[Rfam]
RNA sequence: CAUUUUUUACCGGGGAGCCAUUAAAUUGGCUGAGAGGAUUGGGAUCGACCCGUGGAACCUGAUCCGGUCAGAACCGGCGGAGGGAGAUGGCUAUGGUUGUGU
Numbered sequence: 001c002a003u004u005u006u007u008u009a010c011c012g013g014g015g016a017g018c019c020a021u022u023a024a025a026u027u028g029g030c031u032g033a034g035a036g037g038a039u040u041g042g043g044a045u046c047g048a049c050c051c052g053u054g055g056a057a058c059c060u061g062a063u064c065c066g067g068u069c070a071g072a073a074c075c076g077g078c079g080g081a082g083g084g085a086g087a088u089g090g091c092u093a094u095g096g097u098u099g100u101g102u
Base pairs, nucleotide, nucleotide: 006090007089010086011052012051013050014049017030018029019028020027037046038045039044058083059082060081064077065076066075067074
This 102-nucleotide sequence belongs to the Rfam family "TPP riboswitch aptamer (THI element)".
Vitamin B(1) in its active form thiamin pyrophosphate (TPP) is an essential coenzyme that is synthesised by coupling of pyrimidine and thiazole moieties in bacteria.
For this family Rfam cites "Comparative genomics of thiamin biosynthesis in procaryotes. New genes and regulatory mechanisms" (Rodionov et al., J Biol Chem, 2002).
The match comes from Rfam's covariance-model search (63 bits).